Eukaryotic small subunit ribosomal RNA: a 570-nucleotide part of an RNA from Antiopella cristata.
Rfam links the family to the GO terms ribosome and structural constituent of ribosome.
For this family Rfam cites "Crystal structure of the ribosome at 5.5 A resolution" (Yusupov et al., Science, 2001).
Its Rfam clan is "SSU clan".
[Rfam]
RNA sequence: UGUCUCAAAGGUUAAGCCAUGCACGCCUAAGUUCGUCCCCUUAGUACGGUCAAACCGCGAAUGGCUCAUUAGAUCAGUCCCGGUUCCUUUGGCACGCGACCGCCCCAGGUCACAUACGGAUAACUGUGGCAAAUCCAGAGCUAAUACGUGUAUUGUACUCGCCUGGUCUCGUCACGUUUCACGACGGACGGGACCGGGCGCACUUAUUCGAACGAGGCCGGUGUCCACGGCGUGUUUGCGCACGUCUGGACUGUAACGUAAUUGAGCUCUAGGUAAUUGUCACGACCGCGACGUCCCUUGUGGACGGCGGCUAGCUGAACAAACGUCUGACCUAUCAAAUGUCGACGGUAAGGGCACACGCCAACCGUGUUAACGACGGGUGACGGGGAAUCAGGGUUCUAUUCCGGAGAGGGAGCACGAGAAACGGCUACCAAUUCUAAGGAGGGCAGCAGGCGCGCAACUUACCCAAUACCAGCUCGGUGAGGUAGUAACGAGAUAUAAUGAUGCGGGGCUCGAGUCGGGCCGCGCGGUCGGAAUGAGCCCAGUGUAAAAUCCUGAGGCGACGUUCCA
Numbered sequence: 001u002g003u004c005u006c007a008a009a010g011g012u013u014a015a016g017c018c019a020u021g022c023a024c025g026c027c028u029a030a031g032u033u034c035g036u037c038c039c040c041u042u043a044g045u046a047c048g049g050u051c052a053a054a055c056c057g058c059g060a061a062u063g064g065c066u067c068a069u070u071a072g073a074u075c076a077g078u079c080c081c082g083g084u085u086c087c088u089u090u091g092g093c094a095c096g097c098g099a100c101c102g103c104c105c106c107a108g109g110u111c112a113c114a115u116a117c118g119g120a121u122a123a124c125u126g127u128g129g130c131a132a133a134u135c136c137a138g139a140g141c142u143a144a145u146a147c148g149u150g151u152a153u154u155g156u157a158c159u160c161g162c163c164u165g166g167u168c169u170c171g172u173c174a175c176g177u178u179u180c181a182c183g184a185c186g187g188a189c190g191g192g193a194c195c196g197g198g199c200g201c202a203c204u205u206a207u208u209c210g211a212a213c214g215a216g217g218c219c220g221g222u223g224u225c226c227a228c229g230g231c232g233u234g235u236u237u238g239c240g241c242a243c244g245u246c247u248g249g250a251c252u253g254u255a256a257c258g259u260a261a262u263u264g265a266g267c268u269c270u271a272g273g274u275a276a277u278u279g280u281c282a283c284g285a286c287c288g289c290g291a292c293g294u295c296c297c298u299u300g301u302g303g304a305c306g307g308c309g310g311c312u313a314g315c316u317g318a319a320c321a322a323a324c325g326u327c328u329g330a331c332c333u334a335u336c337a338a339a340u341g342u343c344g345a346c347g348g349u350a351a352g353g354g355c356a357c358a359c360g361c362c363a364a365c366c367g368u369g370u371u372a373a374c375g376a377c378g379g380g381u382g383a384c385g386g387g388g389a390a391u392c393a394g395g396g397u398u399c400u401a402u403u404c405c406g407g408a409g410a411g412g413g414a415g416c417a418c419g420a421g422a423a424a425c426g427g428c429u430a431c432c433a434a435u436u437c438u439a440a441g442g443a444g445g446g447c448a449g450c451a452g453g454c455g456c457g458c459a460a461c462u463u464a465c466c467c468a469a470u471a472c473c474a475g476c477u478c479g480g481u482g483a484g485g486u487a488g489u490a491a492c493g494a495g496a497u498a499u500a501a502u503g504a505u506g507c508g509g510g511g512c513u514c515g516a517g518u519c520g521g522g523c524c525g526c527g528c529g530g531u532c533g534g535a536a537u538g539a540g541c542c543c544a545g546u547g548u549a550a551a552a553u554c555c556u557g558a559g560g561c562g563a564c565g566u567u568c569c570a
Stems, first nucleotide, its partner, number of pairs: 002497005009489001010456001016454003020451003025058002031055002038049001065409003074330004084322002090317004115150004124140002127137003161199005168192006204276005219264004244251002286310004292306004331380003338371003345368005352362002384406004388399004411432002414429003435444003462487001464486003470482004502533003505529004510524005540561002542557001544556002